[Rfam]
A member of the RNA family "Small nucleolar RNA snR60/Z15/Z230/Z193/J17", 98 nucleotides long. For this family Rfam cites "A computational screen for methylation guide snoRNAs in yeast" (Lowe and Eddy, Science, 1999). It is annotated as a C/D-box small nucleolar RNA. The family has 23 seed sequences and 3,592 matches in Rfam 15.1.
RNA sequence: AGGGAUCAAGUGAUGAUUGAUAACGCAUAGUUCAGAUGAUAAAUUCUAUUAUGAUUAACAUCUUCAGCAUAGUCUUUCGCUCCUAUCUGAUGACCCUU
Dot-bracket structure: ...(.(((..................................................................................))).)...